Shown here is a 167-nucleotide RNA from Fervidicola ferrireducens, a member of the family "Group II catalytic intron D1-D4-3". For this family Rfam cites "The ins and outs of group II introns" (Bonen and Vogel, Trends Genet, 2001). Taxonomically the source falls in Fervidicola (Bacteria, Bacillati, Bacillota, Clostridia). The match comes from Rfam's covariance-model search (134 bits). The pairing is the family consensus, mapped onto this sequence.

[Rfam]
RNA sequence: UCCAUCGUGAGGUGGAAUCCGAAGGAAGCCGGAGGCAAAGCCACGGCCCGAUGAACAAGAACCCCAUACGAGGCCAGACCGUUCGGAUGAGCUGGCGAAUUACAGCGAAAUCCAAGGCUGCCAAGGGGCGGUAGGGUAUAUGGGGCGGGCGCGGGGAGGCUUUCGCU
Numbered sequence: 001u002c003c004a005u006c007g008u009g010a011g012g013u014g015g016a017a018u019c020c021g022a023a024g025g026a027a028g029c030c031g032g033a034g035g036c037a038a039a040g041c042c043a044c045g046g047c048c049c050g051a052u053g054a055a056c057a058a059g060a061a062c063c064c065c066a067u068a069c070g071a072g073g074c075c076a077g078a079c080c081g082u083u084c085g086g087a088u089g090a091g092c093u094g095g096c097g098a099a100u101u102a103c104a105g106c107g108a109a110a111u112c113c114a115a116g117g118c119u120g121c122c123a124a125g126g127g128g129c130g131g132u133a134g135g136g137u138a139u140a141u142g143g144g145g146c147g148g149g150c151g152c153g154g155g156g157a158g159g160c161u162u163u164c165g166c167u
Stems, first nucleotide, its partner, number of pairs: 001016006028167001030165003035160002041156002044153002046150005062145006073137003078132006085113004091106004